poplar-1 RNA: a 137-nucleotide RNA sequence. The base pairs follow the family's consensus structure, which is taken from published work.
[Rfam]
Nucleotides: 137
Stems, first nucleotide, its partner, number of pairs: 011063004017055003029042005065095002068092004079126004099132004105120005
Number, partner (000 for none) and nucleotide at each position: 001000u002000a003000c004000g005000a006000g007000c008000c009000a010000g011063g012062g013061g014060c015000a016000a017055u018054g019053u020000g021000a022000a023000a024000c025000g026000g027000c028000a029042g030041g031040a032039c033038u034000g035000c036000g037000c038033a039032g040031u041030c042029c043000g044000g045000c046000a047000a048000c049000a050000u051000c052000a053019g054018c055017a056000g057000a058000a059000a060014g061013c062012c063011c064000g065095c066094u067000u068092u069091a070090c071089g072000a073000g074000a075000a076000g077000g078000a079126u080125u081124g082123g083000c084000u085000g086000a087000a088000a089071c090070g091069u092068a093000g094066a095065g096000a097000a098000a099132u100131a101130u102129u103000g104000a105120g106119c107118c108117u109116c110000c111000u112000g113000c114000a115000a116109g117108a118107g119106g120105c121000a122000g123082c124081c125080a126079a127000g128000c129102a130101a131100u132099a133000g134000c135000a136000u137000u